This 118-nucleotide RNA sequence from Mandrillus leucophaeus belongs to the Rfam family "Small nucleolar RNA SNORA71".
It scores 91 bits against the family's covariance model.
Lineage of the source: Eukaryota > Eumetazoa > Gnathostomata > Sarcopterygii > Mandrillus.
From the family's description: The members of this family belong to the H/ACA class of snoRNAs which bind a number of proteins (including dyskerin, Gar1p and Nop10p) to form snoRNP complexes. This class of snoRNAs are thought to guide the sites of modification of uridines to pseudouridines by forming direct base pairing interactions with substrate RNAs. This family includes U71 (SNORA71), ACA39 (SNORA39) and ACA60 (SNORA60). U71 and ACA60 are predicted to guide the pseudouridylation of U406 and U1004 in 18S rRNA respectively.

RNA sequence: CCCUAUGUUCUGAAGUGAUCCUGGUCAUUGACAGUCCAGGGAGAGAAGCUGCUGAAAGCGUUUCCCCUUGUUUGGAGGGUCCACUGCUGUCCCUUCUAAACUCUGGAGUUUUUCCACA
Numbered sequence: 001c002c003c004u005a006u007g008u009u010c011u012g013a014a015g016u017g018a019u020c021c022u023g024g025u026c027a028u029u030g031a032c033a034g035u036c037c038a039g040g041g042a043g044a045g046a047a048g049c050u051g052c053u054g055a056a057a058g059c060g061u062u063u064c065c066c067c068u069u070g071u072u073u074g075g076a077g078g079g080u081c082c083a084c085u086g087c088u089g090u091c092c093c094u095u096c097u098a099a100a101c102u103c104u105g106g107a108g109u110u111u112u113u114c115c116a117c118a
Base pairs, nucleotide, nucleotide: 001041002040003039004038007035008034009033014029015028016027017026018025019024051115054113055112056111057110058109059108070101071100072099073098074097075095076094077093078092079091
Dot-bracket structure: ((((..(((....((((((....))))))...)))..)))).........(..((((((..........((((((((((...........))))).)))))......)))))).)...